The record is a 600-nucleotide part of an RNA from Coccomyxa sp. Obi, which matches "Archaeal large subunit ribosomal RNA" in Rfam. The match comes from Rfam's covariance-model search (1197 bits). The family's consensus secondary structure is taken from published work.
RNA sequence: UUGGCAGAGCAGAGAAGAGACGUUACACAUAACGAAAUACCAUGGGAAGGCUUGUAAUCCCUGAGAUCCAUGGUUUUCUCGUCGGGAAACCUUAAUUUAAACAUACCUAGUGAACUGAAACAUCUUAGUAGCUAGAGGAAAAGAAAUCAACCGAGAUCCCGUUAGUAGUGGUGAGCGAACCCGGGAAAGGCCAGUUCUUUCCCCAUUUUGUCAAGAAACAAAGAUGGGGGGAUGUGUAGGUUGAACACACAUCCAUGCAUCAUUCAGUGAUGCAUCAUACGUUUUCACAGCAAAAAAUCAAAAUAAGGAGUGGAAUCCCAUGCCAUAGAAGGUGAAAGCCCUGUAGAUUUUAGCCCAUCAACAAUCCGUUCUCCCCAACACAACAACUGACCUUUUCAUCAAAGAGUAUAGUCUACCAUGCAUUGAACAUCAAUGAAGAUGAUAACGAGAUACCAUUCUGUGACGGUAAAGGUUAAUGUUGGCGAACAAAUAUUCGAUUAUUGAGAAAACAUUAAUAAGAACACAGUGAGUAGAGCGAGAUACACAUCUUGCUUGAAGAUAGAGGGACCACCCUCUAAGCCUAAUCAUGCUGCUCUGACC
Numbered sequence: 001u002u003g004g005c006a007g008a009g010c011a012g013a014g015a016a017g018a019g020a021c022g023u024u025a026c027a028c029a030u031a032a033c034g035a036a037a038u039a040c041c042a043u044g045g046g047a048a049g050g051c052u053u054g055u056a057a058u059c060c061c062u063g064a065g066a067u068c069c070a071u072g073g074u075u076u077u078c079u080c081g082u083c084g085g086g087a088a089a090c091c092u093u094a095a096u097u098u099a100a101a102c103a104u105a106c107c108u109a110g111u112g113a114a115c116u117g118a119a120a121c122a123u124c125u126u127a128g129u130a131g132c133u134a135g136a137g138g139a140a141a142a143g144a145a146a147u148c149a150a151c152c153g154a155g156a157u158c159c160c161g162u163u164a165g166u167a168g169u170g171g172u173g174a175g176c177g178a179a180c181c182c183g184g185g186a187a188a189g190g191c192c193a194g195u196u197c198u199u200u201c202c203c204c205a206u207u208u209u210g211u212c213a214a215g216a217a218a219c220a221a222a223g224a225u226g227g228g229g230g231g232a233u234g235u236g237u238a239g240g241u242u243g244a245a246c247a248c249a250c251a252u253c254c255a256u257g258c259a260u261c262a263u264u265c266a267g268u269g270a271u272g273c274a275u276c277a278u279a280c281g282u283u284u285u286c287a288c289a290g291c292a293a294a295a296a297a298u299c300a301a302a303a304u305a306a307g308g309a310g311u312g313g314a315a316u317c318c319c320a321u322g323c324c325a326u327a328g329a330a331g332g333u334g335a336a337a338g339c340c341c342u343g344u345a346g347a348u349u350u351u352a353g354c355c356c357a358u359c360a361a362c363a364a365u366c367c368g369u370u371c372u373c374c375c376c377a378a379c380a381c382a383a384c385a386a387c388u389g390a391c392c393u394u395u396u397c398a399u400c401a402a403a404g405a406g407u408a409u410a411g412u413c414u415a416c417c418a419u420g421c422a423u424u425g426a427a428c429a430u431c432a433a434u435g436a437a438g439a440u441g442a443u444a445a446c447g448a449g450a451u452a453c454c455a456u457u458c459u460g461u462g463a464c465g466g467u468a469a470a471g472g473u474u475a476a477u478g479u480u481g482g483c484g485a486a487c488a489a490a491u492a493u494u495c496g497a498u499u500a501u502u503g504a505g506a507a508a509a510c511a512u513u514a515a516u517a518a519g520a521a522c523a524c525a526g527u528g529a530g531u532a533g534a535g536c537g538a539g540a541u542a543c544a545c546a547u548c549u550u551g552c553u554u555g556a557a558g559a560u561a562g563a564g565g566g567a568c569c570a571c572c573c574u575c576u577a578a579g580c581c582u583a584a585u586c587a588u589g590c591u592g593c594u595c596u597g598a599c600c
Stems, first nucleotide, its partner, number of pairs: 003600002005597006017080004021034003040073006049061002084093003106137001107135005117124002147154002158185004168176002188582004196229003206217004240371001282363001284361001297348003303321001308319001310317001324328001330342003561576005